Annotation:
Rfam assigns this 60-nucleotide sequence from Aotus nancymaae to the family "U7 small nuclear RNA". Taxonomically the source falls in Aotus (Eukaryota, Metazoa, Chordata, Platyrrhini).
RNA sequence: AAGUGUUACAGCUCUUUUAGAAUUUGUGUAGCAGGUUUUCUGGUUUUCACCAGAAACUUU
Numbered sequence: 001a002a003g004u005g006u007u008a009c010a011g012c013u014c015u016u017u018u019a020g021a022a023u024u025u026g027u028g029u030a031g032c033a034g035g036u037u038u039u040c041u042g043g044u045u046u047u048c049a050c051c052a053g054a055a056a057c058u059u060u
Stems, first nucleotide, its partner, number of pairs: 037056008
A reference for the family is Spycher et al. (1994), "3' end processing of mouse histone pre-mRNA: evidence for additional base-pairing between U7 snRNA and pre-mRNA", Nucleic Acids Res. It scores 54 bits against the family's covariance model.